The family of this 130-nucleotide RNA sequence from Mycoplasma sp. CAG:776 is "DUF3800-I RNA". Rfam describes the family as follows. Actinobacteria, Firmicutes, Fusobacteria, Proteobacteria (1 example), Tenericutes (2 examples).
RNA sequence: UAUUUGUACCGGAAGCAAAAAGUAAUUUGUUUCGUCAGGUCGAUAGUUGGUGUUUGAACGAAAGUUUAAGUGUACUGUGUGUGCAUCAACCCAAUUGGGAAAAAGCUGAAAGGCUUUUUUUCUUUAUGGU
Number, nucleotide and partner (000 for none) at each position: 001u000002a000003u000004u000005u000006g000007u000008a040009c039010c038011g035012g033013a032014a031015g030016c029017a028018a027019a026020a000021a000022g000023u000024a000025a000026u019027u018028u017029g016030u015031u014032u013033c012034g000035u011036c000037a000038g010039g009040u008041c000042g000043a000044u097045a096046g095047u094048u093049g092050g000051u000052g000053u000054u089055u088056g087057a066058a065059c064060g000061a000062a000063a000064g059065u058066u057067u000068a000069a000070g086071u085072g084073u083074a082075c081076u000077g000078u000079g000080u000081g075082u074083g073084c072085a071086u070087c056088a055089a054090c000091c000092c049093a048094a047095u046096u045097g044098g000099g120100a119101a118102a117103a116104a115105g114106c113107u112108g000109a000110a000111a000112g107113g106114c105115u104116u103117u102118u101119u100120u099121u000122c000123u000124u000125u000126a000127u000128g000129g000130u000